[Rfam]
RNA sequence: CGACUGUAAUGGUCAAGGUGGGUUUGAAGGCACUUGAUUUUCUCAAUGUCUCUAUUCCAUGUCCAAAUCUGGAAGCCCAGCGGCGCCCAGCACGAACCUUGCGGUGGUCACCCACUCGCACGGGUAGCCUGCGACUUGCUGCGCGUGGCCCUAAGCAAUGAAGAUGACACUUGAGAGAGGUUCCACUCUGCAGAGACAUCUUCACCGUCAGGUGGCGCGCUGGAUUACGAUCGCUGGGGGUUUGGGAUAGAGCGUUGAGAUGGAGAUGUCGACUCCUAUUUUU
Numbered sequence: 001c002g003a004c005u006g007u008a009a010u011g012g013u014c015a016a017g018g019u020g021g022g023u024u025u026g027a028a029g030g031c032a033c034u035u036g037a038u039u040u041u042c043u044c045a046a047u048g049u050c051u052c053u054a055u056u057c058c059a060u061g062u063c064c065a066a067a068u069c070u071g072g073a074a075g076c077c078c079a080g081c082g083g084c085g086c087c088c089a090g091c092a093c094g095a096a097c098c099u100u101g102c103g104g105u106g107g108u109c110a111c112c113c114a115c116u117c118g119c120a121c122g123g124g125u126a127g128c129c130u131g132c133g134a135c136u137u138g139c140u141g142c143g144c145g146u147g148g149c150c151c152u153a154a155g156c157a158a159u160g161a162a163g164a165u166g167a168c169a170c171u172u173g174a175g176a177g178a179g180g181u182u183c184c185a186c187u188c189u190g191c192a193g194a195g196a197c198a199u200c201u202u203c204a205c206c207g208u209c210a211g212g213u214g215g216c217g218c219g220c221u222g223g224a225u226u227a228c229g230a231u232c233g234c235u236g237g238g239g240g241u242u243u244g245g246g247a248u249a250g251a252g253c254g255u256u257g258a259g260a261u262g263g264a265g266a267u268g269u270c271g272a273c274u275c276c277u278a279u280u281u282u283u
Stems, first nucleotide, its partner, number of pairs: 002014003016281007029269001033265003037261003045256003050252010061076001062073004077239001078236005084229002087223005093217002096213004101208004106150001108148002112141001113138002116134005122129002151155001159204007170195003177188003

Rfam assigns this 283-nucleotide RNA sequence from Neurospora tetrasperma to the family "Fungal signal recognition particle RNA".
Lineage of the source: Eukaryota > Fungi > leotiomyceta > sordariomyceta > Neurospora tetrasperma.
By type it is a non-coding RNA gene.
Gene Ontology terms of the family: signal recognition particle, plasma membrane targeting, signal recognition particle, endoplasmic reticulum targeting and SRP-dependent cotranslational protein targeting to membrane, signal sequence recognition.
Pairs were carried over by alignment from the consensus structure, which is taken from published work.
The family has 50 seed sequences and 748 matches in Rfam 15.1.